[Rfam]
RNA sequence: AAUAUUCAAACAUUCGAAAGUUCAGGUCGGUUAGCCGGAACUUUCGUUCCUGGGUUCUCCUGGCGCGUUGCGAAGCCGCGGAUGAUCCUCCCUCGUCCGUAGGUAAUGCGCCUACCUCGCCUCGCUCGUCUUCGACCAGCGAGGCAUUUU
Dot-bracket structure: .............................................................((((((((........(((((((.........)))))))....))))))))......((((((((..((...))..)))))))).....
A member of the RNA family "Rhizobiales sRNA Atu_C7" from Rhizobium sp. AC44/96, 150 nucleotides long.